[Rfam]
RNA sequence: UAAUCUAUAUGGGAUAGUUCAUUAUCUAGUCAUGGCAAACCCAUAUUUGACUACUCAUGAUCACCUGUUAUCUCAAGCCGACGACAUCAUUAAUCCUCAAGUUUUGUUCCUCCUUUAACUAAGAUGUCAUGUAAUCAUCAAAGAAA
Numbered sequence: 001u002a003a004u005c006u007a008u009a010u011g012g013g014a015u016a017g018u019u020c021a022u023u024a025u026c027u028a029g030u031c032a033u034g035g036c037a038a039a040c041c042c043a044u045a046u047u048u049g050a051c052u053a054c055u056c057a058u059g060a061u062c063a064c065c066u067g068u069u070a071u072c073u074c075a076a077g078c079c080g081a082c083g084a085c086a087u088c089a090u091u092a093a094u095c096c097u098c099a100a101g102u103u104u105u106g107u108u109c110c111u112c113c114u115u116u117a118a119c120u121a122a123g124a125u126g127u128c129a130u131g132u133a134a135u136c137a138u139c140a141a142a143g144a145a146a
Stems, first nucleotide, its partner, number of pairs: 004144003008140001012136001015133001019129001023126003027121004
MIR480 microRNA precursor family: a 146-nucleotide RNA from Populus alba. Its family is annotated with miRNA-mediated post-transcriptional gene silencing and RISC complex in the Gene Ontology. A reference for the family is Lu et al. (2005), "Novel and mechanical stress-responsive MicroRNAs in Populus trichocarpa that are absent from Arabidopsis", Plant Cell.